[Rfam]
This 106-nucleotide RNA from Vulpes vulpes belongs to the Rfam family "mir-8834 microRNA precursor family". The organism belongs to Vulpes, within Eukaryota. It scores 51 bits against the family's covariance model. Rfam 15.1 lists 13,926 matches to the family in 17 species.
RNA sequence: AGGAGGAACAACCCCAGUGGCAGCGGCCAGCUCUGGAGCCCUAGAGUCAGCUCCCGACGUAACUACUGAGCUCUGCGUCUGCAGGGCCUAGAGGCUCCGGGGGCGG
Number, nucleotide and partner (000 for none) at each position: 001a000002g098003g097004a096005g095006g000007a000008a000009c000010a089011a000012c086013c085014c084015c000016a000017g000018u000019g079020g078021c077022a000023g076024c075025g074026g073027c000028c000029a072030g071031c070032u069033c068034u000035g066036g000037a064038g000039c000040c000041c059042u000043a000044g000045a000046g000047u000048c000049a000050g000051c000052u000053c000054c000055c000056g000057a000058c000059g041060u000061a000062a000063c000064u037065a000066c035067u000068g033069a032070g031071c030072u029073c026074u025075g024076c023077g021078u020079c019080u000081g000082c000083a000084g014085g013086g012087c000088c000089u010090a000091g000092a000093g000094g000095c005096u004097c003098c002099g000100g000101g000102g000103g000104c000105g000106g000